[Rfam]
RNA sequence: CAUGAACAGACUAUUCGCCGUUUUUACUUUCUUUUUUAUUCACGUCCCCUCUGGAGGCGGUAUUUCUGUGUAAAAAAGAAAGUGAAAAUACCAAAGCCUCCACCACCCGGGAGGCUUUUUUGUU
Number, nucleotide and partner (000 for none) at each position: 001c000002a000003u000004g000005a000006a000007c000008a000009g000010a000011c000012u000013a000014u000015u000016c000017g000018c000019c000020g000021u088022u087023u086024u085025u084026a083027c082028u081029u080030u079031c078032u077033u076034u075035u000036u073037u072038a071039u070040u000041c000042a000043c056044g000045u054046c053047c000048c000049c000050u000051c000052u000053g046054g045055a000056g043057g000058c000059g066060g065061u000062a000063u000064u000065u060066c059067u000068g000069u000070g039071u038072a037073a036074a000075a034076a033077a032078g031079a030080a029081a028082g027083u026084g025085a024086a023087a022088a021089u000090a000091c000092c000093a118094a117095a116096g115097c114098c113099u112100c111101c110102a000103c000104c000105a000106c000107c000108c000109g000110g101111g100112a099113g098114g097115c096116u095117u094118u093119u000120u000121u000122g000123u000124u000

This 124-nucleotide RNA sequence from Shewanella cyperi belongs to the Rfam family "Phenylalanine leader peptide". Rfam classes the family as a cis-regulatory leader. A reference for the family is Gurvich et al. (2010), "Two groups of phenylalanine biosynthetic operon leader peptides genes: a high level of apparently incidental frameshifting in decoding Escherichia coli pheL", Nucleic Acids Res. The match comes from Rfam's covariance-model search (71 bits).